[Rfam]
RNA sequence: AGAUGUCUUCAGGGCAGGGUGAAAUUCCCGAUCGGCGGUAAAGUCCGCGAGCGCCUCUGGCGCAGGAACCGGUGCAAUUCCGGUACCGACAGUACAGUCUGGAUGGAAGAAGAUGUGC
Numbered sequence: 001a002g003a004u005g006u007c008u009u010c011a012g013g014g015c016a017g018g019g020u021g022a023a024a025u026u027c028c029c030g031a032u033c034g035g036c037g038g039u040a041a042a043g044u045c046c047g048c049g050a051g052c053g054c055c056u057c058u059g060g061c062g063c064a065g066g067a068a069c070c071g072g073u074g075c076a077a078u079u080c081c082g083g084u085a086c087c088g089a090c091a092g093u094a095c096a097g098u099c100u101g102g103a104u105g106g107a108a109g110a111a112g113a114u115g116u117g118c
Stems, first nucleotide, its partner, number of pairs: 003116008017029003031098002033088002035048004043086002051063003068084005090101003
This 118-nucleotide RNA sequence from Ruminococcaceae bacterium AM28-23LB belongs to the Rfam family "FMN riboswitch aptamer (RFN element)". A search with the family's covariance model found it, with a score of 113 bits. Its family is annotated with FMN binding in the Gene Ontology. Lineage of the source: Bacteria > Bacillati > Clostridia > Eubacteriales > Oscillospiraceae.